The record is a 78-nucleotide RNA sequence, which matches "skipping-rope RNA" in Rfam. It is one of the family's seed sequences. By type it is a small RNA.
RNA sequence: CGGACUAGAGGAUAGAACAGGUAGCUAUCGCACUGGAGACAUCCGGUGAGAUGCGGGAGUACCACCCCGCCUAGUCGA
Numbered sequence: 001c002g003g004a005c006u007a008g009a010g011g012a013u014a015g016a017a018c019a020g021g022u023a024g025c026u027a028u029c030g031c032a033c034u035g036g037a038g039a040c041a042u043c044c045g046g047u048g049a050g051a052u053g054c055g056g057g058a059g060u061a062c063c064a065c066c067c068c069g070c071c072u073a074g075u076c077g078a
Base pairs, nucleotide, nucleotide: 003076004075005074006073007072008071011029012028013027014026015025020063021062022061023060031048032047033046034045035044036043037042053070054069055068056067057066
Dot-bracket structure: ..((((((..(((((....[[[[.))))).(((((((....)))))))....(((((..]]]]..)))))))))))..